[Rfam]
RNA sequence: GCUGUACAUGAUGACAACUGGCUCCCUCUACUGAGUAAAUGUGAGGAAAAUGCCAUGUCACCCUUCUGACACAGC
Dot-bracket structure: (((((.................................................................)))))
Small nucleolar RNA SNORD100: a 75-nucleotide RNA from Jaculus jaculus. Taxonomically the source falls in Jaculus (Eukaryota, Opisthokonta, Metazoa, Glires). Gene Ontology terms of the family: RNA processing and nucleolus. It is annotated as a C/D-box small nucleolar RNA. For this family Rfam cites "Purified box C/D snoRNPs are able to reproduce site-specific 2'-O-methylation of target RNA in vitro" (Galardi et al., Mol Cell Biol, 2002).